[Rfam]
RNA sequence: GGGGAGCAUUUAAAGUUGAAAUGUUGCCUGAUAUACCCUUCCUAUAACAAGUCAAAAGUCUCGACUUUUCCUGCUUGUUGUACACGAGUCAUGUUCACAAGCCUCCGGAUUAUGAGAUACAUA
Numbered sequence: 001g002g003g004g005a006g007c008a009u010u011u012a013a014a015g016u017u018g019a020a021a022u023g024u025u026g027c028c029u030g031a032u033a034u035a036c037c038c039u040u041c042c043u044a045u046a047a048c049a050a051g052u053c054a055a056a057a058g059u060c061u062c063g064a065c066u067u068u069u070c071c072u073g074c075u076u077g078u079u080g081u082a083c084a085c086g087a088g089u090c091a092u093g094u095u096c097a098c099a100a101g102c103c104u105c106c107g108g109a110u111u112a113u114g115a116g117a118u119a120c121a122u123a
Stems, first nucleotide, its partner, number of pairs: 001029003005025007061116001073102006080096001082094003
RNA: Small nucleolar RNA snoR104
Organism: Helianthus annuus